[Rfam]
RNA: cspA thermoregulator
RNA sequence: CCGAUCCGUACAGACCAUUAAAGCAGUGUAGUAAGGCAAGUCCCUUCAAGAGUUAUCGUUGAUACCCCUCGUAGUGCACAUUCCUUUAACGCUUCAAAAUCUGUAAAGCACGCCAUAUCGCCGAAAGGCACACUUAAUUAUUAAAGGUAAUACACUAUGUCCGGUAAAAUGACUGGUAUCGUAAAAUGGUUCAACGCUGACAAAGGCUUCGGCUUCAUCACUCCUGACGAUGGCUCUAAAGACGUGUUCGUACACUUCUCUGCUAUCCAGAACGAUGGUUACAAAUCUCUGGACGAAGGUCAGAAAGUGUCCUUCACCAUCGAAAGCGGCGCUAAAGGCCCGGCAGCUGGUAACGUAACCAGCCUGUAAUCUCUGCUUAAAAGCACAGAAUCUAAGAUCCCUGCC
Numbered sequence: 001c002c003g004a005u006c007c008g009u010a011c012a013g014a015c016c017a018u019u020a021a022a023g024c025a026g027u028g029u030a031g032u033a034a035g036g037c038a039a040g041u042c043c044c045u046u047c048a049a050g051a052g053u054u055a056u057c058g059u060u061g062a063u064a065c066c067c068c069u070c071g072u073a074g075u076g077c078a079c080a081u082u083c084c085u086u087u088a089a090c091g092c093u094u095c096a097a098a099a100u101c102u103g104u105a106a107a108g109c110a111c112g113c114c115a116u117a118u119c120g121c122c123g124a125a126a127g128g129c130a131c132a133c134u135u136a137a138u139u140a141u142u143a144a145a146g147g148u149a150a151u152a153c154a155c156u157a158u159g160u161c162c163g164g165u166a167a168a169a170u171g172a173c174u175g176g177u178a179u180c181g182u183a184a185a186a187u188g189g190u191u192c193a194a195c196g197c198u199g200a201c202a203a204a205g206g207c208u209u210c211g212g213c214u215u216c217a218u219c220a221c222u223c224c225u226g227a228c229g230a231u232g233g234c235u236c237u238a239a240a241g242a243c244g245u246g247u248u249c250g251u252a253c254a255c256u257u258c259u260c261u262g263c264u265a266u267c268c269a270g271a272a273c274g275a276u277g278g279u280u281a282c283a284a285a286u287c288u289c290u291g292g293a294c295g296a297a298g299g300u301c302a303g304a305a306a307g308u309g310u311c312c313u314u315c316a317c318c319a320u321c322g323a324a325a326g327c328g329g330c331g332c333u334a335a336a337g338g339c340c341c342g343g344c345a346g347c348u349g350g351u352a353a354c355g356u357a358a359c360c361a362g363c364c365u366g367u368a369a370u371c372u373c374u375g376c377u378u379a380a381a382a383g384c385a386c387a388g389a390a391u392c393u394a395a396g397a398u399c400c401c402u403g404c405c
Stems, first nucleotide, its partner, number of pairs: 001013001003011001022225002025222004035216002039214004043206004052201004057196006064190003070159007083147007091109004120129003161176005228322006241249002252310006259304004263299002266293006274287003327342003331339003343367004347362005370389003374385004
Dot-bracket structure: (.(.......).)........((.((((......((..((((((((.....((((.((((((.(((...(((((((......(((((((.((((...........))))..........(((....)))...........))))))).....))))))).(((((......)))))...........))))))))).)))).))))....))))))..)))).))..((((((.......((.....))..((((((.((((((.((((((..(((........)))))))))....)).))))))))))......))))))....(((.(((...))))))(((((((((......))))).))))..(((.((((....)))).)))................